Source information:
Rfam assigns this 62-nucleotide RNA to the family "RAGATH-18 RNA".
RNA sequence: CCUUUGGAGUAUUAAACAAAUCAGAGUACCUAUUAGGGAAAUGAAAUACAAUGAGAAAGGAA
Numbered sequence: 001c002c003u004u005u006g007g008a009g010u011a012u013u014a015a016a017c018a019a020a021u022c023a024g025a026g027u028a029c030c031u032a033u034u035a036g037g038g039a040a041a042u043g044a045a046a047u048a049c050a051a052u053g054a055g056a057a058a059g060g061a062a
Stems, first nucleotide, its partner, number of pairs: 001060005009049005021044003029037003

By type it is a small RNA.